About this RNA:
A member of the RNA family "UnaL2 LINE 3' element" from Muraenolepis orangiensis, 54 nucleotides long. On this family, see Baba et al., RNA 2004: "Solution structure of an RNA stem-loop derived from the 3' conserved region of eel LINE UnaL2". The organism belongs to Muraenolepis, within Eukaryota. Rfam links the family to the GO term transposition, RNA-mediated. Rfam describes the family as follows. The eel long interspersed element (LINE) UnaL2 and its partner short interspersed element (SINE) share a conserved 3' tail containing a stem-loop that is critical for their retrotransposition.
RNA sequence: CUCUUACCUUAUUGUAAGUUGCUUUGGACAAAAGUGUCUGCUAAAUGACUAAUG
Numbered sequence: 001c002u003c004u005u006a007c008c009u010u011a012u013u014g015u016a017a018g019u020u021g022c023u024u025u026g027g028a029c030a031a032a033a034g035u036g037u038c039u040g041c042u043a044a045a046u047g048a049c050u051a052a053u054g
Stems, first nucleotide, its partner, number of pairs: 013043001014041003020036006